A member of the RNA family "FMN riboswitch aptamer (RFN element)" from Falsochrobactrum shanghaiense, 166 nucleotides long.
A search with the family's covariance model found it, with a score of 110 bits.
Pairs were carried over by alignment from the consensus structure, which is taken from published work.

RNA sequence: GGCUGUUCUCGGGGCGGGGUGAGAUUCCCCACCGGCGGUAUGAAGAGCAAUCUUCGAGCCCGCGAGCGCUUGAAACGAAGAGAUGAUUCGUCUCUUUAUUUCAGGGUCAGCAGAUCCGGUGAGAUGCCGGAGCCGACGGUCAUAGUCCGGAUGAAAGAGAGCGAAU
Numbered sequence: 001g002g003c004u005g006u007u008c009u010c011g012g013g014g015c016g017g018g019g020u021g022a023g024a025u026u027c028c029c030c031a032c033c034g035g036c037g038g039u040a041u042g043a044a045g046a047g048c049a050a051u052c053u054u055c056g057a058g059c060c061c062g063c064g065a066g067c068g069c070u071u072g073a074a075a076c077g078a079a080g081a082g083a084u085g086a087u088u089c090g091u092c093u094c095u096u097u098a099u100u101u102c103a104g105g106g107u108c109a110g111c112a113g114a115u116c117c118g119g120u121g122a123g124a125u126g127c128c129g130g131a132g133c134c135g136a137c138g139g140u141c142a143u144a145g146u147c148c149g150g151a152u153g154a155a156a157g158a159g160a161g162c163g164a165a166u
Stems, first nucleotide, its partner, number of pairs: 004163007017029003031146002033135002035063004058133002066111002115131005137149003